Record summary: Rfam assigns this 101-nucleotide RNA sequence from Salipiger marinus to the family "TPP riboswitch aptamer (THI element)". It scores 75 bits against the family's covariance model. Its family is annotated with thiamine pyrophosphate binding in the Gene Ontology. The family's consensus secondary structure is taken from published work.
RNA sequence: ACCAUUCCGUCGGGGUGCCCUGCAAGGGGCUGAGAGGCAGCCGCCAACCCGUCGAACCUGAUCCGGGCAAUGCCGGCGUAGGGAACGGGACCACAUCUUCG
Numbered sequence: 001a002c003c004a005u006u007c008c009g010u011c012g013g014g015g016u017g018c019c020c021u022g023c024a025a026g027g028g029g030c031u032g033a034g035a036g037g038c039a040g041c042c043g044c045c046a047a048c049c050c051g052u053c054g055a056a057c058c059u060g061a062u063c064c065g066g067g068c069a070a071u072g073c074c075g076g077c078g079u080a081g082g083g084a085a086c087g088g089g090a091c092c093a094c095a096u097c098u099u100c101g
Stems, first nucleotide, its partner, number of pairs: 006089005011051004017030005037044002057082004063076004